Shown here is a 116-nucleotide sequence from Haemophilus influenzae, a member of the family "Haemophilus regulatory RNA responsive to iron". Rfam links the family to the GO terms response to iron ion and positive regulation of translation, ncRNA-mediated. The literature on the family includes a 2014 paper in PLoS One by Santana et al., "HrrF is the Fur-regulated small RNA in nontypeable Haemophilus influenzae". Pairs were carried over by alignment from the consensus structure, which was predicted with CMfinder. The sequence is in the family's curated seed alignment.
RNA sequence: AUAUCUGUUACUAUACACACAUCUGUUAAGCGAUUGCAGGUUGCUCCAACAGGUAGAGUAGAAAGUAAAUUCGUUAGGGUUCAAAAAGGCUGAAGGUUUAAACUUCAGUCUUUUUU
Number, nucleotide and partner (000 for none) at each position: 001a000002u000003a054004u053005c052006u051007g050008u049009u000010a000011c000012u000013a000014u000015a000016c000017a000018c000019a000020c000021a000022u000023c000024u000025g000026u000027u000028a000029a045030g044031c043032g042033a041034u040035u000036g000037c000038a000039g000040g034041u033042u032043g031044c030045u029046c000047c000048a000049a008050c007051a006052g005053g004054u003055a000056g000057a000058g000059u000060a000061g000062a000063a000064a000065g000066u000067a000068a000069a080070u079071u078072c077073g000074u000075u000076a000077g072078g071079g070080u069081u000082c000083a115084a114085a113086a112087a111088g110089g109090c108091u107092g106093a105094a104095g103096g000097u000098u000099u000100a000101a000102a000103c095104u094105u093106c092107a091108g090109u089110c088111u087112u086113u085114u084115u083116u000
Involved in iron homeostasis in Haemophilus species. Orthologues exist only among other Pasteurellacae.
The source organism's lineage runs through Bacteria, Pseudomonadota, Pasteurellales, Haemophilus and Haemophilus influenzae.